A member of the RNA family "Small nucleolar RNA SNORD58" from Sarcophilus harrisii, 66 nucleotides long.
RNA sequence: CUGCAAUGAUGAGUUUUCUUAGGACACCUUUGGAUUAACAAUGAAAAUAAAACAAAACUGAGCAGC
Numbered sequence: 001c002u003g004c005a006a007u008g009a010u011g012a013g014u015u016u017u018c019u020u021a022g023g024a025c026a027c028c029u030u031u032g033g034a035u036u037a038a039c040a041a042u043g044a045a046a047a048u049a050a051a052a053c054a055a056a057a058c059u060g061a062g063c064a065g066c
Stems, first nucleotide, its partner, number of pairs: 001065004
Dot-bracket structure: ((((.........................................................)))).

It is annotated as a C/D-box small nucleolar RNA. A search with the family's covariance model found it, with a score of 75 bits. Rfam links the family to the GO terms nucleolus and RNA processing. For this family Rfam cites "Site-specific ribose methylation of preribosomal RNA: a novel function for small nucleolar RNAs" (Kiss-Laszlo et al., Cell, 1996). The organism belongs to Sarcophilus, within Eukaryota. Rfam 15.1 lists 2,484 matches to the family in 680 species. Rfam describes the family as follows. snoRNA U58 is found in introns 1, 3 and 6 of the ribosomal protein RPL17 gene in humans.